This 75-nucleotide sequence from Mus musculus belongs to the Rfam family "mir-873 microRNA precursor family".
[Rfam]
RNA sequence: GUGGGUGUUCCCGGGAACUUGUCAGUCUCCUGUCUAUUUUCAAUAGGAGACUCACAAGUUCCUGCAAAUGCACAC
Dot-bracket structure: (((.(..((..(.(((((((((.((((((((.(.........).)))))))).))))))))).)..))..).)))

It is one of the family's seed sequences. Taxonomically the source falls in Mus (Eukaryota, Euteleostomi, Dipnotetrapodomorpha, Muridae). The family's consensus secondary structure was predicted with RNAalifold. For this family Rfam cites "MicroRNA transcriptome in the newborn mouse ovaries determined by massive parallel sequencing" (Ahn et al., Mol Hum Reprod, 2010).